The record is a 55-nucleotide RNA sequence, which matches "Na+ riboswitch aptamer (DUF1646)" in Rfam.
[Rfam]
RNA sequence: GGUUGAACGGAUAUUGUCCGUUUUCAAGAGAUUCAGGCUUCUGGGGUGGGAAGCU
Numbered sequence: 001g002g003u004u005g006a007a008c009g010g011a012u013a014u015u016g017u018c019c020g021u022u023u024u025c026a027a028g029a030g031a032u033u034c035a036g037g038c039u040u041c042u043g044g045g046g047u048g049g050g051a052a053g054c055u
Base pairs, nucleotide, nucleotide: 003027004026005025006022007021008020009019010018011017036055037054038053039052040051041050042049